[Rfam]
RNA sequence: UCCGGGGUGACUCGGAAUCUGAAGGAAGCCGGAGGCAAAUCUCCGCCCUGAGGUACACGAACCUCAUCAGGCGUGUUUUCUUGGAUGAGGCUGCACUACAAGUCAAAGUCCAAACGACCAAAGGGGAAGUACGUAAAUGAGGUGGGGAUAUGGAGAGGAAGAAUGUGUC
Numbered sequence: 001u002c003c004g005g006g007g008u009g010a011c012u013c014g015g016a017a018u019c020u021g022a023a024g025g026a027a028g029c030c031g032g033a034g035g036c037a038a039a040u041c042u043c044c045g046c047c048c049u050g051a052g053g054u055a056c057a058c059g060a061a062c063c064u065c066a067u068c069a070g071g072c073g074u075g076u077u078u079u080c081u082u083g084g085a086u087g088a089g090g091c092u093g094c095a096c097u098a099c100a101a102g103u104c105a106a107a108g109u110c111c112a113a114a115c116g117a118c119c120a121a122a123g124g125g126g127a128a129g130u131a132c133g134u135a136a137a138u139g140a141g142g143u144g145g146g147g148a149u150a151u152g153g154a155g156a157g158g159a160a161g162a163a164u165g166u167g168u169c
Stems, first nucleotide, its partner, number of pairs: 001016006028169001030167002036161001040156006046147005062142005071134003075130007083111004089104004

Rfam assigns this 169-nucleotide RNA from Salicibibacter halophilus to the family "Group II catalytic intron D1-D4-3".
A search with the family's covariance model found it, with a score of 130 bits.
On this family, see Bonen and Vogel, Trends Genet 2001: "The ins and outs of group II introns".
The base pairs follow the family's consensus structure.